RNA sequence: AUAUCUAGCAGGGGAAAUACCAUAGUCACAAAGAUAUUUUCCCCAUGGGGAGGCUUAGCCAUUGCACUCUGGGUGUGCUGACCCCUGUGAUGUCCCCAAGUGCUAGAAACUUGACUGCAUAAUUUUUGGUAGUGGGGGACUGCAUUUGUGUUCUUCCCUG
Numbered sequence: 001a002u003a004u005c006u007a008g009c010a011g012g013g014g015a016a017a018u019a020c021c022a023u024a025g026u027c028a029c030a031a032a033g034a035u036a037u038u039u040u041c042c043c044c045a046u047g048g049g050g051a052g053g054c055u056u057a058g059c060c061a062u063u064g065c066a067c068u069c070u071g072g073g074u075g076u077g078c079u080g081a082c083c084c085c086u087g088u089g090a091u092g093u094c095c096c097c098a099a100g101u102g103c104u105a106g107a108a109a110c111u112u113g114a115c116u117g118c119a120u121a122a123u124u125u126u127u128g129g130u131a132g133u134g135g136g137g138g139a140c141u142g143c144a145u146u147u148g149u150g151u152u153c154u155u156c157c158c159u160g
Stems, first nucleotide, its partner, number of pairs: 008118004012044003016040002019038001022035002045086001047084002050082001052079003056075002059072002088113003091109001093106001096102001134159006142151003

A member of the RNA family "U1 spliceosomal RNA" from Mesocricetus auratus, 160 nucleotides long. The family has 100 seed sequences and 40,184 matches in Rfam 15.1. It is annotated as a spliceosomal small nuclear RNA. The organism belongs to Mesocricetus, within Eukaryota. The family's consensus secondary structure is taken from published work. A search with the family's covariance model found it, with a score of 96 bits. Clan: U1 clan.